[Rfam]
RNA sequence: ACCUUCCUUGUCUCGGGGUGGACUGGGUUGUUCAAUGAGCGGUUAGCGAGAACAACCCUGCUGACACCUACAGCAACACAACUCGCGUCACCUGCGCUUCUCGCGCAGUGCACGGCGCAAUUUUUGGAACC
Number, nucleotide and partner (000 for none) at each position: 001a000002c000003c000004u000005u000006c018007c017008u016009u015010g000011u000012c000013u000014c000015g009016g008017g007018g006019u000020g000021g000022a000023c060024u000025g058026g000027g056028u055029u054030g053031u052032u051033c050034a000035a000036u000037g000038a000039g047040c046041g000042g000043u000044u000045a000046g040047c039048g000049a000050g033051a032052a031053c030054a029055a028056c027057c000058c025059u000060g023061c000062u000063g000064a000065c000066a000067c000068c000069u000070a000071c000072a000073g000074c000075a000076a000077c000078a000079c000080a000081a000082c000083u000084c000085g118086c117087g116088u115089c114090a000091c000092c108093u107094g106095c105096g104097c103098u000099u000100c000101u000102c000103g097104c096105g095106c094107a093108g092109u000110g000111c000112a000113c000114g089115g088116c087117g086118c085119a000120a000121u000122u000123u000124u000125u000126g000127g000128a000129a000130c000131c000